The family of this 46-nucleotide RNA sequence from Hippolais icterina is "Histone 3' UTR stem-loop".
The family's consensus secondary structure is taken from published work.
From the family's description: The mRNAs of metazoan histone genes lack a poly-A tail. 3' end processing occurs at a site between a highly conserved stem-loop (modelled by this family) and a purine rich region around 20 nts downstream (the histone downstream element, or HDE). The stem-loop is bound by a 31 kDa stem-loop binding protein (SLBP - also termed the histone hairpin binding protein, or HBP).
NCBI's taxonomy places the organism under Eukaryota, Chordata, Sarcopterygii, Sylvioidea, Hippolais.
RNA sequence: CCAAAGGCUCUUUUAAGAGCCACCCACAUAUUCUAUAGAAGAGCUU
Numbered sequence: 001c002c003a004a005a006g007g008c009u010c011u012u013u014u015a016a017g018a019g020c021c022a023c024c025c026a027c028a029u030a031u032u033c034u035a036u037a038g039a040a041g042a043g044c045u046u
Base pairs, nucleotide, nucleotide: 006021007020008019009018010017011016